[Rfam]
Shown here is a 176-nucleotide RNA from Jaculus jaculus, a member of the family "Small nucleolar RNA SNORA81". The family has 28 seed sequences and 1,161 matches in Rfam 15.1. It is annotated as an H/ACA-box small nucleolar RNA. A search with the family's covariance model found it, with a score of 148 bits. A reference for the family is Gu et al. (2005), "A novel experimental approach for systematic identification of box H/ACA snoRNAs from eukaryotes", Nucleic Acids Res. Its family is annotated with RNA processing and nucleolus in the Gene Ontology. The organism belongs to Jaculus, within Eukaryota.
RNA sequence: UCCUUCUCAUAUAAGCACUGUGCUAAAAGUGAAAAACUAGGAUCCUAUCUUUGUUUUUGUAAUAAUGCUAACAGAGUACACACAGGAAGAAGAGUAACUGCACCAGAUUCCAAAGAUUUGGGUUGAGCUCUUUCUUAAUGUCCAGUGUCUUUUGUCUUAAGAUUGGCACAAUAUUA
Numbered sequence: 001u002c003c004u005u006c007u008c009a010u011a012u013a014a015g016c017a018c019u020g021u022g023c024u025a026a027a028a029g030u031g032a033a034a035a036a037c038u039a040g041g042a043u044c045c046u047a048u049c050u051u052u053g054u055u056u057u058u059g060u061a062a063u064a065a066u067g068c069u070a071a072c073a074g075a076g077u078a079c080a081c082a083c084a085g086g087a088a089g090a091a092g093a094g095u096a097a098c099u100g101c102a103c104c105a106g107a108u109u110c111c112a113a114a115g116a117u118u119u120g121g122g123u124u125g126a127g128c129u130c131u132u133u134c135u136u137a138a139u140g141u142c143c144a145g146u147g148u149c150u151u152u153u154g155u156c157u158u159a160a161g162a163u164u165g166g167c168a169c170a171a172u173a174u175u176a
Base pairs, nucleotide, nucleotide: 018076019075021073022072024070025069028066030064031063033057034056036054037053039051040050041049042048043047099170100169103166104165105164107163121146123144125142126141